[Rfam]
RNA: Makes More Granules Regulator RNA (mmgR)
RNA sequence: GGCACUAGGCUUCUUGGACGUUUCCUCCCUAAACUUGAGCCCCUGCUUCGGCAGGGGCUUUUUUUUGUUCGCGC
Numbered sequence: 001g002g003c004a005c006u007a008g009g010c011u012u013c014u015u016g017g018a019c020g021u022u023u024c025c026u027c028c029c030u031a032a033a034c035u036u037g038a039g040c041c042c043c044u045g046c047u048u049c050g051g052c053a054g055g056g057g058c059u060u061u062u063u064u065u066u067g068u069u070c071g072c073g074c
Stems, first nucleotide, its partner, number of pairs: 008019001010017002038059009
Dot-bracket structure: .......(.((....)).)..................(((((((((....)))))))))...............